RNA sequence: UCGUGCUAAAUGGGGAGCUAGCGGUGCCCUGUAACCUGCAAUCCGCUACAGCAGGAUUGAAUUCCUUCUUUAGGCUUUAAGCUGUUAGGACAGUCUUACUCAAGUGGUGUUGAGAAUUGGGUCCCAUGCAACAGAAGUUCAUAAACUCCGUCAGAUCCGGAAGGAAGCAGCGGUAAGUGAAUCCUUUUGUGUGCCGUGGAGCAACCUGAUUUGAGCUAACUAGGUAAGAAACGCUGGUAGAUUAUUGCCGACAGAAGGUGCACGA
Numbered sequence: 001u002c003g004u005g006c007u008a009a010a011u012g013g014g015g016a017g018c019u020a021g022c023g024g025u026g027c028c029c030u031g032u033a034a035c036c037u038g039c040a041a042u043c044c045g046c047u048a049c050a051g052c053a054g055g056a057u058u059g060a061a062u063u064c065c066u067u068c069u070u071u072a073g074g075c076u077u078u079a080a081g082c083u084g085u086u087a088g089g090a091c092a093g094u095c096u097u098a099c100u101c102a103a104g105u106g107g108u109g110u111u112g113a114g115a116a117u118u119g120g121g122u123c124c125c126a127u128g129c130a131a132c133a134g135a136a137g138u139u140c141a142u143a144a145a146c147u148c149c150g151u152c153a154g155a156u157c158c159g160g161a162a163g164g165a166a167g168c169a170g171c172g173g174u175a176a177g178u179g180a181a182u183c184c185u186u187u188u189g190u191g192u193g194c195c196g197u198g199g200a201g202c203a204a205c206c207u208g209a210u211u212u213g214a215g216c217u218a219a220c221u222a223g224g225u226a227a228g229a230a231a232c233g234c235u236g237g238u239a240g241a242u243u244a245u246u247g248c249c250g251a252c253a254g255a256a257g258g259u260g261c262a263c264g265a
Stems, first nucleotide, its partner, number of pairs: 001265006009058003012030004017025003035055005064258006073249003079243002082240007093232001096228002100224002104220002106217003114212009124199005129191002132189005137182006148173004156165003
A member of the RNA family "Bacterial large signal recognition particle RNA" from Clostridium aciditolerans, 265 nucleotides long. The family's consensus secondary structure is taken from published work. Taxonomically the source falls in Clostridium (Bacteria, Bacillota, Clostridia, Eubacteriales). From the family's description: The signal recognition particle (SRP) is a universally conserved ribonucleoprotein involved in the co-translational targeting of proteins to membranes.